[Rfam]
About this RNA:
The record is a 111-nucleotide sequence from Lupinus albus, which matches "small nucleolar RNA snoR127" in Rfam. NCBI's taxonomy places the organism under Eukaryota, Viridiplantae, Euphyllophyta, Pentapetalae, Lupinus. For this family Rfam cites "Mining small RNA sequencing data: a new approach to identify small nucleolar RNAs in Arabidopsis" (Chen and Wu, Nucleic Acids Res, 2009). Rfam classes the family as a C/D-box small nucleolar RNA. The match comes from Rfam's covariance-model search (69 bits).
RNA sequence: CUGGGAUGAUGUGACUUAGCCAAAUCAGACAUUGAUGUGCUCCAUUUGAUGUUGAAGCGCAUUUCUCUGUUGAUUCACAUCAGAGAUUGGUUUUCUUUUUUCCUGACCAGA
Numbered sequence: 001c002u003g004g005g006a007u008g009a010u011g012u013g014a015c016u017u018a019g020c021c022a023a024a025u026c027a028g029a030c031a032u033u034g035a036u037g038u039g040c041u042c043c044a045u046u047u048g049a050u051g052u053u054g055a056a057g058c059g060c061a062u063u064u065c066u067c068u069g070u071u072g073a074u075u076c077a078c079a080u081c082a083g084a085g086a087u088u089g090g091u092u093u094u095c096u097u098u099u100u101u102c103c104u105g106a107c108c109a110g111a
Base pairs, nucleotide, nucleotide: 001110002109003108004107